[Rfam]
Record summary
The family of this 137-nucleotide RNA sequence from Paraburkholderia phymatum is "Group II catalytic intron D1-D4-4". On this family, see Lehmann and Schmidt, Crit Rev Biochem Mol Biol 2003: "Group II introns: structure and catalytic versatility of large natural ribozymes". Rfam 15.1 lists 840 matches to the family in 506 species. The base pairs follow the family's consensus structure.
RNA sequence: CAGCAGGAAAUAGACCUGCCGGGGUAGAAGUCAGAAGCUCCGUAGCUUGGAUAGCAGGGUGGCGGGAAACCAAGACUCUGAAGCCUAUCGACGACCGUCUCCUUGGGGGACGUGCGAGUCAUCGGGCCGUAAUGAAG
Numbered sequence: 001c002a003g004c005a006g007g008a009a010a011u012a013g014a015c016c017u018g019c020c021g022g023g024g025u026a027g028a029a030g031u032c033a034g035a036a037g038c039u040c041c042g043u044a045g046c047u048u049g050g051a052u053a054g055c056a057g058g059g060u061g062g063c064g065g066g067a068a069a070c071c072a073a074g075a076c077u078c079u080g081a082a083g084c085c086u087a088u089c090g091a092c093g094a095c096c097g098u099c100u101c102c103u104u105g106g107g108g109g110a111c112g113u114g115c116g117a118g119u120c121a122u123c124g125g126g127c128c129g130u131a132a133u134g135a136a137g
Stems, first nucleotide, its partner, number of pairs: 020042005050089005055080006064071002096112006114130003